The record is a 90-nucleotide RNA from Eragrostis curvula, which matches "MIR397 microRNA precursor family" in Rfam. Rfam links the family to the GO terms RISC complex and miRNA-mediated post-transcriptional gene silencing. Lineage of the source: Eukaryota > Euphyllophyta > Mesangiospermae > commelinids > Eragrostis. A search with the family's covariance model found it, with a score of 56 bits. On this family, see Mica et al., BMC Genomics 2009: "High throughput approaches reveal splicing of primary microRNA transcripts and tissue specific expression of mature microRNAs in Vitis vinifera".
RNA sequence: AGCAAAGGCGUCAUUGAGUGCAGGGCUGGUGAAGCAACCACCAGUGCCUGACUGCCGAGUUCAUCAACGCUGCACUCAAUGAUGCCUUUG
Number, nucleotide and partner (000 for none) at each position: 001a000002g000003c000004a000005a000006a087007g086008g085009c084010g083011u082012c000013a080014u079015u078016g077017a076018g075019u074020g073021c072022a071023g070024g000025g068026c000027u066028g065029g000030u063031g062032a061033a000034g000035c000036a000037a000038c000039c000040a000041c000042c000043a000044g000045u000046g000047c000048c000049u000050g000051a000052c000053u000054g000055c000056c000057g000058a000059g000060u000061u032062c031063a030064u000065c028066a027067a000068c025069g000070c023071u022072g021073c020074a019075c018076u017077c016078a015079a014080u013081g000082a011083u010084g009085c008086c007087u006088u000089u000090g000